[Rfam]
RNA sequence: AUGUACCACUUGUAGACUGCGGUUCUGAGCACUCCGUCCGCGCCCACCUGACAGCUGCUCGCUACGUUGUGUUAGCC
Numbered sequence: 001a002u003g004u005a006c007c008a009c010u011u012g013u014a015g016a017c018u019g020c021g022g023u024u025c026u027g028a029g030c031a032c033u034c035c036g037u038c039c040g041c042g043c044c045c046a047c048c049u050g051a052c053a054g055c056u057g058c059u060c061g062c063u064a065c066g067u068u069g070u071g072u073u074a075g076c077c
Base pairs, nucleotide, nucleotide: 002016004014005013006012020036021035022034048075049074050073051072052071053070
Shown here is a 77-nucleotide RNA from Xanthomonas oryzae, a member of the family "Xanthomonas sRNA sX9".
The family's RNA type in Rfam is small RNA.
A search with the family's covariance model found it, with a score of 72 bits.
For this family Rfam cites "Genome-wide transcriptome analysis of the plant pathogen Xanthomonas identifies sRNAs with putative virulence functions" (Schmidtke et al., Nucleic Acids Res, 2011).